[Rfam]
RNA sequence: UAUUGGAAGUAUUCGAAUUAACAUAGCGAGUUAAAAUAAGGUUUAUCCGUAUUCAACUUUCAAAGUAUGCCUGUCUCGGGCAUUUUUUU
Numbered sequence: 001u002a003u004u005g006g007a008a009g010u011a012u013u014c015g016a017a018u019u020a021a022c023a024u025a026g027c028g029a030g031u032u033a034a035a036a037u038a039a040g041g042u043u044u045a046u047c048c049g050u051a052u053u054c055a056a057c058u059u060u061c062a063a064a065g066u067a068u069g070c071c072u073g074u075c076u077c078g079g080g081c082a083u084u085u086u087u088u089u
Stems, first nucleotide, its partner, number of pairs: 001036001003034003010025003040048002056066001058064002067083007
A member of the RNA family "Trans-activating crRNA" from Floricoccus tropicus, 89 nucleotides long.
RNA-guided Streptococcus pyogenes Cas9 (SpCas9) is a sequence-specific DNA endonuclease, the Trans-activating CRISPR RNA form an hybrid with the crRNA (crRNA/tracrRNA). The RNA hybrid acts as a guide for the endonuclease Cas9.
The pairing is the family consensus, mapped onto this sequence.